[Rfam]
Description
The record is an 83-nucleotide sequence from Varanus komodoensis, which matches "mir-150 microRNA precursor family" in Rfam. Gene Ontology terms of the family: miRNA-mediated post-transcriptional gene silencing and RISC complex. The literature on the family includes a 2008 paper in Genome Res by Murchison et al., "Conservation of small RNA pathways in platypus".

RNA sequence: CUCUCCUCCUCUUUCUCCCAACCCUUGUACCAGUGCCAGUUGUGGCCCCGCUGGUACAGAGGAUGGAAGGAAGAGUGGUGCAG
Numbered sequence: 001c002u003c004u005c006c007u008c009c010u011c012u013u014u015c016u017c018c019c020a021a022c023c024c025u026u027g028u029a030c031c032a033g034u035g036c037c038a039g040u041u042g043u044g045g046c047c048c049c050g051c052u053g054g055u056a057c058a059g060a061g062g063a064u065g066g067a068a069g070g071a072a073g074a075g076u077g078g079u080g081c082a083g
Base pairs, nucleotide, nucleotide: 010074011073012072014070015069016067017066018065023059026058027057028056029055030054031053032052